[Rfam]
The record is a 102-nucleotide RNA from Mandrillus leucophaeus, which matches "Y RNA" in Rfam. The family has 104 seed sequences and 26,986 matches in Rfam 15.1. The base pairs follow the family's consensus structure, which is taken from published work. Taxonomically the source falls in Mandrillus (Eukaryota, Sarcopterygii, Tetrapoda, Simiiformes).
RNA sequence: GGCUGGUGCAAGUACAAUGGUAUUUACAACUUAUUGAUCACAGCCGUUUACAGAUUCCUUUGUUCCUUCUCUACUCCCACUGCUUCACUUGACUAGCCUCUA
Numbered sequence: 001g002g003c004u005g006g007u008g009c010a011a012g013u014a015c016a017a018u019g020g021u022a023u024u025u026a027c028a029a030c031u032u033a034u035u036g037a038u039c040a041c042a043g044c045c046g047u048u049u050a051c052a053g054a055u056u057c058c059u060u061u062g063u064u065c066c067u068u069c070u071c072u073a074c075u076c077c078c079a080c081u082g083c084u085u086c087a088c089u090u091g092a093c094u095a096g097c098c099u100c101u102a
Base pairs, nucleotide, nucleotide: 001098002097003096004095005094006093007092010090011089016081018079019078020077028064029063030062033059